The record is a 271-nucleotide RNA sequence from Lupinus angustifolius, which matches "Early nodulin 40" in Rfam. Its family is annotated with nodulation in the Gene Ontology. Rfam 15.1 lists 341 matches to the family in 193 species. The family's consensus secondary structure is taken from published work. The source organism's lineage runs through Eukaryota, Euphyllophyta, genistoids sensu lato, core genistoids and Lupinus.
[Rfam]
RNA sequence: AUGGGAACUUAAUGGCAUAUAAAAGAAGCUUUGAAGGGACAGUGUUAAAGGGUCCUCACCCUUCACACCACUCCUUUCAUUUCCAACAGUUUGCUUAGGAUUAUUUAGCUAUUGGCUUCUUUAAUAAUAACCAUUGAUAUGGAAAAAUUUCUAUAUAGUAGCCGAAGGAAGAAGAGAAGCUAGCAAUGUUCAAAGGAAUUGAAGAAGCUUUUGGUUACAGAUUCGCAAACCGGCAAGUCAGAAAAAGGCAAUGGACUCCAUUAGGGUUCGU
Numbered sequence: 001a002u003g004g005g006a007a008c009u010u011a012a013u014g015g016c017a018u019a020u021a022a023a024a025g026a027a028g029c030u031u032u033g034a035a036g037g038g039a040c041a042g043u044g045u046u047a048a049a050g051g052g053u054c055c056u057c058a059c060c061c062u063u064c065a066c067a068c069c070a071c072u073c074c075u076u077u078c079a080u081u082u083c084c085a086a087c088a089g090u091u092u093g094c095u096u097a098g099g100a101u102u103a104u105u106u107a108g109c110u111a112u113u114g115g116c117u118u119c120u121u122u123a124a125u126a127a128u129a130a131c132c133a134u135u136g137a138u139a140u141g142g143a144a145a146a147a148u149u150u151c152u153a154u155a156u157a158g159u160a161g162c163c164g165a166a167g168g169a170a171g172a173a174g175a176g177a178a179g180c181u182a183g184c185a186a187u188g189u190u191c192a193a194a195g196g197a198a199u200u201g202a203a204g205a206a207g208c209u210u211u212u213g214g215u216u217a218c219a220g221a222u223u224c225g226c227a228a229a230c231c232g233g234c235a236a237g238u239c240a241g242a243a244a245a246a247g248g249c250a251a252u253g254g255a256c257u258c259c260a261u262u263a264g265g266g267u268u269c270g271u
Stems, first nucleotide, its partner, number of pairs: 044073001089230006110220001254269002257266002